The family of this 104-nucleotide RNA from Castanea mollissima is "mir-399 microRNA precursor family". The organism belongs to Castanea, within Eukaryota. Rfam 15.1 lists 2,396 matches to the family in 221 species. Rfam links the family to the GO terms RISC complex and miRNA-mediated post-transcriptional gene silencing. Rfam describes the family as follows. mir-399 was identified in both Arabidopsis thaliana and Oryza sativa computationally and was later experimentally verified. mir-399 is thought to target mRNAs coding for a phosphatase transporter. The mature sequence is excised from the 3' arm of the hairpin. A search with the family's covariance model found it, with a score of 67 bits.

RNA sequence: AGGUGAAUGGCAGGGCAAAUCUCCUUUGGCAAAACAGAAGUUUGCAAUAUGUAUCGAUCUGCAUGUUCUCUUUUGCCAAAGGAGAUUUGCACUGUUAUUCCCUA
Numbered sequence: 001a002g003g004u005g006a007a008u009g010g011c012a013g014g015g016c017a018a019a020u021c022u023c024c025u026u027u028g029g030c031a032a033a034a035c036a037g038a039a040g041u042u043u044g045c046a047a048u049a050u051g052u053a054u055c056g057a058u059c060u061g062c063a064u065g066u067u068c069u070c071u072u073u074u075g076c077c078a079a080a081g082g083a084g085a086u087u088u089g090c091a092c093u094g095u096u097a098u099u100c101c102c103u104a
Stems, first nucleotide, its partner, number of pairs: 005100005011094003015090005021084004027078008